Source information
The record is a 54-nucleotide RNA sequence from Triplophysa tibetana, which matches "UnaL2 LINE 3' element" in Rfam. By type it is a cis-regulatory element. Taxonomically the source falls in Triplophysa (Eukaryota, Teleostomi, Euteleostomi, Otophysi). Rfam's curators write: The eel long interspersed element (LINE) UnaL2 and its partner short interspersed element (SINE) share a conserved 3' tail containing a stem-loop that is critical for their retrotransposition.
RNA sequence: CUCCUCAACUCUUGUAAGUCGCUUUGGAUAAAAGCGUCUGCUAAAUGACUAAAU
Numbered sequence: 001c002u003c004c005u006c007a008a009c010u011c012u013u014g015u016a017a018g019u020c021g022c023u024u025u026g027g028a029u030a031a032a033a034g035c036g037u038c039u040g041c042u043a044a045a046u047g048a049c050u051a052a053a054u
Base pairs, nucleotide, nucleotide: 013043014041015040016039020036021035022034023033024032025031